[Rfam]
RNA: mir-92 microRNA precursor family
Organism: Chiloscyllium punctatum
RNA sequence: UGUCUUGCACAGGUUGGGAUUUGUUGCAAUGCUGACAAAUGUACAUGGUAUUGCACUUGUCCCGGCCUGUUAAGGAUGG
Numbered sequence: 001u002g003u004c005u006u007g008c009a010c011a012g013g014u015u016g017g018g019a020u021u022u023g024u025u026g027c028a029a030u031g032c033u034g035a036c037a038a039a040u041g042u043a044c045a046u047g048g049u050a051u052u053g054c055a056c057u058u059g060u061c062c063c064g065g066c067c068u069g070u071u072a073a074g075g076a077u078g079g
Base pairs, nucleotide, nucleotide: 004075005074006073009070010069011068012067013066014065016063017062018061019060020059023056024055026054027053028052029051030050031049032048033047034046